[Rfam]
RNA sequence: CCACGCGGACGACCGCGCGCGCAAUCGACUCACCGGGGACGACCCCA
Number, nucleotide and partner (000 for none) at each position: 001c000002c019003a000004c017005g016006c015007g014008g013009a000010c000011g000012a000013c008014c007015g006016c005017g004018c000019g002020c000021g000022c000023a000024a000025u000026c000027g000028a000029c000030u000031c000032a000033c000034c000035g046036g045037g044038g043039a000040c000041g000042a000043c038044c037045c036046c035047a000
The family of this 47-nucleotide RNA sequence from Caballeronia glathei is "Guanidine-II riboswitch aptamer (mini-ykkC)". Simpler in structure and has fewer highly conserved nucleotide positions than the ykkC-yxkD leader. The family's consensus secondary structure is taken from published work. The organism belongs to Caballeronia, within Bacteria. It scores 38 bits against the family's covariance model.